[Rfam]
RNA sequence: GGUCAUGAGUGCCAGCAGAUAGCCCCGGCUUGCUGGCCGGCAACCCUCGUAUCGCGGUGGGGUGCCCCGGGUGAAGACCUGGCCGUCCGGCGCCCGCCGGAGGGCAAGCGCGGCCC
Numbered sequence: 001g002g003u004c005a006u007g008a009g010u011g012c013c014a015g016c017a018g019a020u021a022g023c024c025c026c027g028g029c030u031u032g033c034u035g036g037c038c039g040g041c042a043a044c045c046c047u048c049g050u051a052u053c054g055c056g057g058u059g060g061g062g063u064g065c066c067c068c069g070g071g072u073g074a075a076g077a078c079c080u081g082g083c084c085g086u087c088c089g090g091c092g093c094c095c096g097c098c099g100g101a102g103g104g105c106a107a108g109c110g111c112g113g114c115c116c
Base pairs, nucleotide, nucleotide: 001079002078003077004076009038011037012036013035014034015033016032021030022029039066040065041064044062045061046060048057082105083104084103086101087100088099089098090097091096

The family of this 116-nucleotide RNA sequence is "SAM (S-adenosyl methionine) riboswitch aptamer". Rfam 15.1 lists 2,360 matches to the family in 1,305 species. The base pairs follow the family's consensus structure, which is taken from published work. Its Rfam clan is "SAM clan". Gene Ontology terms of the family: regulation of gene expression and S-adenosylmethionine metabolic process.